[Rfam]
RNA sequence: UUGUCUUAUUUCUGAGCUGAGGGGUUAUUUUUAUGCAGUCUAAAUGAUCUCAGCUGUCCGAAAAUGUCUUCAAGUUUAAAGGCUU
Numbered sequence: 001u002u003g004u005c006u007u008a009u010u011u012c013u014g015a016g017c018u019g020a021g022g023g024g025u026u027a028u029u030u031u032u033a034u035g036c037a038g039u040c041u042a043a044a045u046g047a048u049c050u051c052a053g054c055u056g057u058c059c060g061a062a063a064a065u066g067u068c069u070u071c072a073a074g075u076u077u078a079a080a081g082g083c084u085u
Stems, first nucleotide, its partner, number of pairs: 003083005011078001014075001018072006026066007035057003040053002043050001
Annotation:
The record is an 85-nucleotide sequence from Macaca mulatta, which matches "mir-626 microRNA precursor family" in Rfam. Taxonomically the source falls in Macaca (Eukaryota, Eumetazoa, Chordata, Vertebrata). The sequence is in the family's curated seed alignment. The literature on the family includes a 2010 paper in BMC Res Notes by Brameier, "Genome-wide comparative analysis of microRNAs in three non-human primates". The family's consensus secondary structure was predicted with RNAalifold.